[Rfam]
RNA sequence: GCCCCUGUAGCUCAGUUGGCUAGAGCAUCCGUCUUGUAAACGGAAGGUCGUCGGUUCGAGUCCGACCGGGGGCU
Numbered sequence: 001g002c003c004c005c006u007g008u009a010g011c012u013c014a015g016u017u018g019g020c021u022a023g024a025g026c027a028u029c030c031g032u033c034u035u036g037u038a039a040a041c042g043g044a045a046g047g048u049c050g051u052c053g054g055u056u057c058g059a060g061u062c063c064g065a066c067c068g069g070g071g072g073c074u
Base pairs, nucleotide, nucleotide: 001073002072003071004070005069006068007067010026011025012024013023028044029043030042031041032040050066051065052064053063054062
Shown here is a 74-nucleotide RNA sequence from Actinoplanes octamycinicus, a member of the family "tRNA".
The family's consensus secondary structure is taken from published work.
NCBI's taxonomy places the organism under Bacteria, Actinomycetota, Actinomycetes, Micromonosporales, Actinoplanes.
Rfam links the family to the GO term triplet codon-amino acid adaptor activity.
The match comes from Rfam's covariance-model search (72 bits).